Rfam assigns this 170-nucleotide sequence from Mannheimia haemolytica to the family "Lysine riboswitch aptamer". Gene Ontology term of the family: lysine biosynthetic process. The family's consensus secondary structure is taken from published work. On this family, see Mandal et al., Cell 2003: "Riboswitches Control Fundamental Biochemical Pathways in Bacillus subtilis and Other Bacteria". Taxonomically the source falls in Mannheimia haemolytica (Bacteria, Gammaproteobacteria, Pasteurellales, Pasteurellaceae). The sequence is in the family's curated seed alignment.
RNA sequence: ACAAAUUGUAGAGGUGCGAAUUCAAUAAGUAUUUCUUCUGAGUGGAAAACGAUGAAGGGGAAGGAAAGGUGAAUUUGCCGAAAUCAAUUAAGCGUCAUCUUAAUUGGUUGGGGUCGUUGUCGAAAGAAACGACACUGUCGUAGUAAAUGCUACGGAGUGCUACUGUUAGG
Dot-bracket structure: .....(.((((....(((((((((.......((((((((................))))))))......)))))))))...(((((((((((......)))))))))))((.((((((.(.....).)))))).)).(((((((....)))))))....)))).).....